ZMP/ZTP riboswitch aptamer (pfl RNA motif): an 81-nucleotide RNA sequence from Antricoccus suffuscus. The match comes from Rfam's covariance-model search (40 bits).
[Rfam]
RNA sequence: AUCUACGGACACGACUGGCGCGGGUAGGUGAACUACCGGGGAGUGCAAUUUCGUGAAGCGUCGACCGCCUGGGUGCUUCUC
Numbered sequence: 001a002u003c004u005a006c007g008g009a010c011a012c013g014a015c016u017g018g019c020g021c022g023g024g025u026a027g028g029u030g031a032a033c034u035a036c037c038g039g040g041g042a043g044u045g046c047a048a049u050u051u052c053g054u055g056a057a058g059c060g061u062c063g064a065c066c067g068c069c070u071g072g073g074u075g076c077u078u079c080u081c
Stems, first nucleotide, its partner, number of pairs: 005050001010045003015040002017069004024036004058076005
Lineage of the source: Bacteria > Actinomycetota > Actinomycetes > Antricoccaceae > Antricoccus. The base pairs follow the family's consensus structure, which is taken from published work.